[Rfam]
RNA: Ribosomal protein L19 leader
RNA sequence: ACGAUGUUCCGCUGUCUCCUAGUUAGUCAAGAGCAUUAG
Numbered sequence: 001a002c003g004a005u006g007u008u009c010c011g012c013u014g015u016c017u018c019c020u021a022g023u024u025a026g027u028c029a030a031g032a033g034c035a036u037u038a039g
Base pairs, nucleotide, nucleotide: 003037004036005035006034007033008032009031013029014028016026017025